[Rfam]
RNA: Clostridiales-1 RNA
RNA sequence: AAAAAAGUGUUGUCAAGCGACCAUACAGACUGCGUGCUUGCACGCAAGGCUGAAUGGGCAUUUGACAACCAAGCCUGCAUGAGUAAGCAGGGCGAUAGCCCGAAUUACGAAUGCAGGCGACAACUGCGAGAGUGCCACAAGCACGGAGCAGUUGUCUUUUUA
Numbered sequence: 001a002a003a004a005a006a007g008u009g010u011u012g013u014c015a016a017g018c019g020a021c022c023a024u025a026c027a028g029a030c031u032g033c034g035u036g037c038u039u040g041c042a043c044g045c046a047a048g049g050c051u052g053a054a055u056g057g058g059c060a061u062u063u064g065a066c067a068a069c070c071a072a073g074c075c076u077g078c079a080u081g082a083g084u085a086a087g088c089a090g091g092g093c094g095a096u097a098g099c100c101c102g103a104a105u106u107a108c109g110a111a112u113g114c115a116g117g118c119g120a121c122a123a124c125u126g127c128g129a130g131a132g133u134g135c136c137a138c139a140a141g142c143a144c145g146g147a148g149c150a151g152u153u154g155u156c157u158u159u160u161u162a
Base pairs, nucleotide, nucleotide: 001161002160003159004158005157009069010068011067012066016062017061019059021057022056023055024054026052027051028050030048031047032045033044034043035042036041073118074117075116076115077114078113079112080111083108084107085106086105090101091100092099093098121154122153123152124151125150126149127148132144133143134142135141